A member of the RNA family "small Cajal body-specific RNA 18" from Felis catus, 81 nucleotides long. Pairs were carried over by alignment from the consensus structure, which was predicted with PFOLD. Lineage of the source: Eukaryota > Sarcopterygii > Amniota > Theria > Felis. From the family's description: scaRNAs are a specific class of small nuclear RNAs which localise to the Cajal bodies and guide the modification of RNA polymerase II transcribed spliceosomal RNAs U1, U2, U4, U5 and U12. This C/D box domain U91 (also known as U4-8) was identified by Darzacq and is predicted to guide the 2'O-ribose methylation of U4 snRNA C8.
RNA sequence: UGGUCAAUGAUGACGUGACCACUGCGCAAUCUGAGUUCUAGGAACCUGGUGAUGGAAUGUGCUCAGAGCGGACUGAGACCG
Numbered sequence: 001u002g003g004u005c006a007a008u009g010a011u012g013a014c015g016u017g018a019c020c021a022c023u024g025c026g027c028a029a030u031c032u033g034a035g036u037u038c039u040a041g042g043a044a045c046c047u048g049g050u051g052a053u054g055g056a057a058u059g060u061g062c063u064c065a066g067a068g069c070g071g072a073c074u075g076a077g078a079c080c081g
Base pairs, nucleotide, nucleotide: 002080003079004078005077038048041045